A member of the RNA family "U2 spliceosomal RNA" from Anguilla anguilla, 179 nucleotides long. The family's RNA type in Rfam is spliceosomal small nuclear RNA. From the family's description: U2 is a small nuclear RNA (snRNA) component of the spliceosome (involved in pre-mRNA splicing). Complementary binding between U2 snRNA (in an area lying towards the 5' end but 3' to hairpin I) and the branchpoint sequence (BPS) of the intron results the bulging out of an unpaired adenosine, on the BPS, which initiates a nucleophilic attack at the intronic 5' splice site, thus starting the first of two transesterification reactions that mediate splicing. It scores 117 bits against the family's covariance model. Its Rfam clan is "U2 clan".
[Rfam]
RNA sequence: AUAAAGUCUCAUAAAAACAAAAAAAAUCUGUUCUUAUCAGUUUAAUAUCUGAUACGUCCCCUAUCUGGGGACUACAUAUUAAACGGAUUUUUGAGACUGGGAGUCGGAGAAGGAGCUUGCUCCGUCCGCUCCACGCAUCGACCCGGUAUUGCAGUACGUCCGGGAACGGUGCGCCUCUA
Numbered sequence: 001a002u003a004a005a006g007u008c009u010c011a012u013a014a015a016a017a018c019a020a021a022a023a024a025a026a027u028c029u030g031u032u033c034u035u036a037u038c039a040g041u042u043u044a045a046u047a048u049c050u051g052a053u054a055c056g057u058c059c060c061c062u063a064u065c066u067g068g069g070g071a072c073u074a075c076a077u078a079u080u081a082a083a084c085g086g087a088u089u090u091u092u093g094a095g096a097c098u099g100g101g102a103g104u105c106g107g108a109g110a111a112g113g114a115g116c117u118u119g120c121u122c123c124g125u126c127c128g129c130u131c132c133a134c135g136c137a138u139c140g141a142c143c144c145g146g147u148a149u150u151g152c153a154g155u156a157c158g159u160c161c162g163g164g165a166a167c168g169g170u171g172c173g174c175c176u177c178u179a
Base pairs, nucleotide, nucleotide: 001012002011004009035054036053037052038051039050040049056072057071058070059069060068061067100132101131102130103129104128106126107125112123113122114121115120135172136171137170138169139168140167142164143163144162145161146160